[Rfam]
RNA sequence: AAGUGCUACAGCUCUUUUACAAUUUGUCUAGCAGGUUUUCUGGUCCACACCAGAAAAUACCCCC
Dot-bracket structure: .................................(((((((((((....))))))))..)))...
Numbered sequence: 001a002a003g004u005g006c007u008a009c010a011g012c013u014c015u016u017u018u019a020c021a022a023u024u025u026g027u028c029u030a031g032c033a034g035g036u037u038u039u040c041u042g043g044u045c046c047a048c049a050c051c052a053g054a055a056a057a058u059a060c061c062c063c064c
Stems, first nucleotide, its partner, number of pairs: 034061003037056008

Rfam assigns this 64-nucleotide RNA sequence from Bos indicus x Bos taurus to the family "U7 small nuclear RNA".
The organism belongs to Bos, within Eukaryota.
A search with the family's covariance model found it, with a score of 65 bits.
About the family: Animal histone pre-mRNAs are spliced by a different mechanism than nuclear pre-mRNAs and self-splicing introns. This processing involves the U7 snRNP, which contains only one RNA species: U7. The 5' end of U7 RNA is thought to base-pair to a conserved spacer element downstream of the cleavage site in histone pre-mRNA. This family contains a number of annotated U7 pseudogenes.
The family has 49 seed sequences and 10,439 matches in Rfam 15.1.